[Rfam]
Shown here is a 170-nucleotide RNA from Mycobacterium botniense, a member of the family "M-box riboswitch aptamer (ykoK leader)".
The match comes from Rfam's covariance-model search (147 bits).
NCBI's taxonomy places the organism under Bacteria, Bacillati, Mycobacteriales, Mycobacteriaceae, Mycobacterium.
A reference for the family is Barrick et al. (2004), "New RNA motifs suggest an expanded scope for riboswitches in bacterial genetic control", Proc Natl Acad Sci U S A.
Rfam 15.1 lists 1,095 matches to the family in 932 species.
RNA sequence: GUAGCACCUCGUUAGGCGAGGCGGCCACACGGAUAUAGGCCACUGACCCCGAACGUCGAGAGACGCCCAGGGUCAGGACAGCUCCUCCCGGCUUAAGGGUUGAGCCCAAGUGGCUUCCGGGUUUCCGGAUACGGCGUGUGGUGUCGAAGCUCUGACGAGUGGGGUGCGGU
Numbered sequence: 001g002u003a004g005c006a007c008c009u010c011g012u013u014a015g016g017c018g019a020g021g022c023g024g025c026c027a028c029a030c031g032g033a034u035a036u037a038g039g040c041c042a043c044u045g046a047c048c049c050c051g052a053a054c055g056u057c058g059a060g061a062g063a064c065g066c067c068c069a070g071g072g073u074c075a076g077g078a079c080a081g082c083u084c085c086u087c088c089c090g091g092c093u094u095a096a097g098g099g100u101u102g103a104g105c106c107c108a109a110g111u112g113g114c115u116u117c118c119g120g121g122u123u124u125c126c127g128g129a130u131a132c133g134g135c136g137u138g139u140g141g142u143g144u145c146g147a148a149g150c151u152c153u154g155a156c157g158a159g160u161g162g163g164g165u166g167c168g169g170u
Stems, first nucleotide, its partner, number of pairs: 005166006011156002013096001015151003020145003025141007039114005045074005054065004081105004087099003116129003
Dot-bracket structure: ....(((((((([.(((..(((..(((((((.......(((((.(((((....((((....))))....)))))......((((..(((......])))..))))....))))).(((........))).....))))))).)))...)))...))....))))))....